RNA: Purine riboswitch aptamer
Organism: Sporosarcina luteola
RNA sequence: CCUAAACAAAAACCAUCCACUCAUAUAAUCGCGGGGAUAUGGCCUGCAAGUUUCUACCGGUUUACCGUAAAUGAACCGACUAUGAGAAGCAAGAAGAGAAAA
Numbered sequence: 001c002c003u004a005a006a007c008a009a010a011a012a013c014c015a016u017c018c019a020c021u022c023a024u025a026u027a028a029u030c031g032c033g034g035g036g037a038u039a040u041g042g043c044c045u046g047c048a049a050g051u052u053u054c055u056a057c058c059g060g061u062u063u064a065c066c067g068u069a070a071a072u073g074a075a076c077c078g079a080c081u082a083u084g085a086g087a088a089g090c091a092a093g094a095a096g097a098g099a100a101a102a
Stems, first nucleotide, its partner, number of pairs: 020086006029049001031047005058078007